[Rfam]
RNA: c-di-AMP riboswitch aptamer (ydaO/yuaA leader)
Organism: Streptomyces boncukensis
RNA sequence: GCCCAGUGAUCGCCGAGUCUCCAAGGGCCCCGCGCCCGAGGGGAGCCGGGGACCCACGCAGUCCCUGGGGUGAAUCGGCGGCCCUCGCCAGGGGCCGGCCGUAGGAGACCUUCCUGCUCCGAACCCGUCAGCUAACCCGGUAGGCGAGAAGGAAGGAAAG
Numbered sequence: 001g002c003c004c005a006g007u008g009a010u011c012g013c014c015g016a017g018u019c020u021c022c023a024a025g026g027g028c029c030c031c032g033c034g035c036c037c038g039a040g041g042g043g044a045g046c047c048g049g050g051g052a053c054c055c056a057c058g059c060a061g062u063c064c065c066u067g068g069g070g071u072g073a074a075u076c077g078g079c080g081g082c083c084c085u086c087g088c089c090a091g092g093g094g095c096c097g098g099c100c101g102u103a104g105g106a107g108a109c110c111u112u113c114c115u116g117c118u119c120c121g122a123a124c125c126c127g128u129c130a131g132c133u134a135a136c137c138c139g140g141u142a143g144g145c146g147a148g149a150a151g152g153a154a155g156g157a158a159a160g
Stems, first nucleotide, its partner, number of pairs: 011146004018044005045141006055067002068126003076101004104120004